[Rfam]
Nucleotides: 085
Base pairs, nucleotide, nucleotide: 001085002084003083004082005081006080007079008078009077010076011075012074013073015071016070017069018068019067020066021065022064023063024062027059028058029057030056031055032054033053034052035051036050
Number, partner (000 for none) and nucleotide at each position: 001085u002084g003083u004082u005081u006080u007079u008078g009077u010076u011075g012074g013073g014000u015071a016070g017069g018068c019067a020066g021065u022064g023063c024062u025000u026000u027059a028058c029057a030056a031055g032054a033053u034052g035051g036050a037000g038000g039000a040000g041000a042000a043000a044000u045000u046000c047000u048000c049000u050036u051035c052034c053033a054032u055031c056030u057029u058028g059027u060000a061000a062024g063023g064022c065021a066020c067019u068018g069017c070016c071015u072000a073013c074012c075011c076010a077009a078008c079007a080006a081005a082004a083003a084002c085001a

mir-449 microRNA precursor family: an 85-nucleotide RNA from Microcaecilia unicolor. Pairs were carried over by alignment from the consensus structure, which was predicted with RNAalifold. Its Rfam clan is "mir-34 clan". Its family is annotated with miRNA-mediated post-transcriptional gene silencing and RISC complex in the Gene Ontology. It scores 61 bits against the family's covariance model.